The record is a 104-nucleotide sequence from Actinomarinicola tropica, which matches "SAM-I/IV (S-adenosyl methionine) riboswitch aptamer" in Rfam. On this family, see Trausch et al., PNAS 2014: "Structural basis for diversity in the SAM clan of riboswitches".

RNA sequence: GCAUCAGGAGAAGCCCGCACCGUCGGGCUCGGCAACCUGGGACUGGACGCCCAAGGUGCCCUCCCGCUCCGGCGGGGAUGUGGCCGGUACCCACCGGCAACGAA
Number, nucleotide and partner (000 for none) at each position: 001g081002c080003a079004u078005c077006a000007g000008g000009a000010g030011a000012a029013g028014c027015c026016c025017g000018c000019a000020c000021c000022g000023u000024c000025g016026g015027g014028c013029u012030c010031g060032g059033c058034a000035a000036c056037c055038u054039g052040g051041g050042a000043c000044u000045g000046g000047a000048c000049g000050c041051c040052c039053a000054a038055g037056g036057u000058g033059c032060c031061c000062u000063c000064c000065c000066g000067c000068u000069c000070c000071g000072g000073c000074g000075g000076g000077g005078a004079u003080g002081u001082g000083g098084c097085c096086g095087g094088u093089a000090c000091c000092c000093a088094c087095c086096g085097g084098c083099a000100a000101c000102g000103a000104a000